[Rfam]
RNA sequence: AGAUUAAAAGGCAAACUUAAGGUAACUUAAGGACGCAAAACUAAAGGGUCUAAUUAGUAAUAGACAGCCAGUUGCAUCGG
Numbered sequence: 001a002g003a004u005u006a007a008a009a010g011g012c013a014a015a016c017u018u019a020a021g022g023u024a025a026c027u028u029a030a031g032g033a034c035g036c037a038a039a040a041c042u043a044a045a046g047g048g049u050c051u052a053a054u055u056a057g058u059a060a061u062a063g064a065c066a067g068c069c070a071g072u073u074g075c076a077u078c079g080g
Stems, first nucleotide, its partner, number of pairs: 003077002011036002016031006034067001039073004046069002048065003
Rfam assigns this 80-nucleotide RNA sequence from Acholeplasma laidlawii to the family "c-di-GMP-I-GGC riboswitch aptamer".